This 139-nucleotide RNA from Octodon degus belongs to the Rfam family "Small Cajal body specific RNA 11". About the family: scaRNAs are a specific class of small nuclear RNAs which localise to the Cajal bodies and guide the modification of RNA polymerase II transcribed spliceosomal RNAs U1, U2, U4, U5 and U12. NCBI's taxonomy places the organism under Eukaryota, Gnathostomata, Dipnotetrapodomorpha, Eutheria, Octodon.
RNA sequence: AUGUCCUGGCCUAUGUGUUGUGCUCCCCUGUACUCAGGUCUUCACAGGGUAGUCUGGCAGGAUGUUCAGUAAUUUCCCUCUCGGUUUAGGAGGGCUGUCCUAAGCAUAGGGCUGGCUCUUAAAGGCAUGAGAGGACAAU
Numbered sequence: 001a002u003g004u005c006c007u008g009g010c011c012u013a014u015g016u017g018u019u020g021u022g023c024u025c026c027c028c029u030g031u032a033c034u035c036a037g038g039u040c041u042u043c044a045c046a047g048g049g050u051a052g053u054c055u056g057g058c059a060g061g062a063u064g065u066u067c068a069g070u071a072a073u074u075u076c077c078c079u080c081u082c083g084g085u086u087u088a089g090g091a092g093g094g095c096u097g098u099c100c101u102a103a104g105c106a107u108a109g110g111g112c113u114g115g116c117u118c119u120u121a122a123a124g125g126c127a128u129g130a131g132a133g134g135a136c137a138a139u
Stems, first nucleotide, its partner, number of pairs: 002064007010057002022053003026049006077134006084126004090120007097112006